[Rfam]
RNA sequence: CAGGUGGAGUUGAACUGCAAGCUCUGAGGAUUCAGCUGGUGAGAUUGGCAUGAUCUUGGUCAUGUGGGUUGUGUUAUCGGGUCUGCUUAGCUGCAGGUCCCCGCUUCGGCGGGGGUGCGCGAAUCACUUAUCAAGUGUUGUGCGCCCGGUUAAUGACGAGCCCGCUCGCCAGUGCACUUUCUCAGAGUGUUCACCACGACCGGCGUUGCCGUCUGGCUGUUGCGGUUAAACCGGCCUGGUAGGGUCCUUGUGGCUCUGCUAGGUCGGGAUGGCAGGUAGCCUGUUGUACAAUUUAUUGUGCUCCGGGUGUAAUAGCCGACUGCUUCGGUUCUGUGCGGUGCGUCGGAGACGGCGGCUUGUUGUGCUUGCAGGCGUGCCUGCUGUGCUGGCGGCUCUGAGUCUGGUUGCCUUGUUGCUUGUGAAUACAAGCCAGGUGAUGGCUUGGUGUCGUUUGGUCGGCGGUUGCGUUUGUUGCACUUUAAAAGGGCCCAUAGUCUGUGGUGUAGUGGUAGACUAUCCACCUGACCCGUCUUGAAACACGG
Numbered sequence: 001c002a003g004g005u006g007g008a009g010u011u012g013a014a015c016u017g018c019a020a021g022c023u024c025u026g027a028g029g030a031u032u033c034a035g036c037u038g039g040u041g042a043g044a045u046u047g048g049c050a051u052g053a054u055c056u057u058g059g060u061c062a063u064g065u066g067g068g069u070u071g072u073g074u075u076a077u078c079g080g081g082u083c084u085g086c087u088u089a090g091c092u093g094c095a096g097g098u099c100c101c102c103g104c105u106u107c108g109g110c111g112g113g114g115g116u117g118c119g120c121g122a123a124u125c126a127c128u129u130a131u132c133a134a135g136u137g138u139u140g141u142g143c144g145c146c147c148g149g150u151u152a153a154u155g156a157c158g159a160g161c162c163c164g165c166u167c168g169c170c171a172g173u174g175c176a177c178u179u180u181c182u183c184a185g186a187g188u189g190u191u192c193a194c195c196a197c198g199a200c201c202g203g204c205g206u207u208g209c210c211g212u213c214u215g216g217c218u219g220u221u222g223c224g225g226u227u228a229a230a231c232c233g234g235c236c237u238g239g240u241a242g243g244g245u246c247c248u249u250g251u252g253g254c255u256c257u258g259c260u261a262g263g264u265c266g267g268g269a270u271g272g273c274a275g276g277u278a279g280c281c282u283g284u285u286g287u288a289c290a291a292u293u294u295a296u297u298g299u300g301c302u303c304c305g306g307g308u309g310u311a312a313u314a315g316c317c318g319a320c321u322g323c324u325u326c327g328g329u330u331c332u333g334u335g336c337g338g339u340g341c342g343u344c345g346g347a348g349a350c351g352g353c354g355g356c357u358u359g360u361u362g363u364g365c366u367u368g369c370a371g372g373c374g375u376g377c378c379u380g381c382u383g384u385g386c387u388g389g390c391g392g393c394u395c396u397g398a399g400u401c402u403g404g405u406u407g408c409c410u411u412g413u414u415g416c417u418u419g420u421g422a423a424u425a426c427a428a429g430c431c432a433g434g435u436g437a438u439g440g441c442u443u444g445g446u447g448u449c450g451u452u453u454g455g456u457c458g459g460c461g462g463u464u465g466c467g468u469u470u471g472u473u474g475c476a477c478u479u480u481a482a483a484a485g486g487g488c489c490c491a492u493a494g495u496c497u498g499u500g501g502u503g504u505a506g507u508g509g510u511a512g513a514c515u516a517u518c519c520a521c522c523u524g525a526c527c528c529g530u531c532u533u534g535a536a537a538c539a540c541g542g
Stems, first nucleotide, its partner, number of pairs: 001524008009514003017190001021188010194509004199504002527542004
Record summary:
This 542-nucleotide part of an RNA from Fasciolopsis buskii belongs to the Rfam family "Eukaryotic large subunit ribosomal RNA". It scores 2590 bits against the family's covariance model. The source organism's lineage runs through Eukaryota, Plagiorchiida, Echinostomatoidea, Fasciolidae and Fasciolopsis.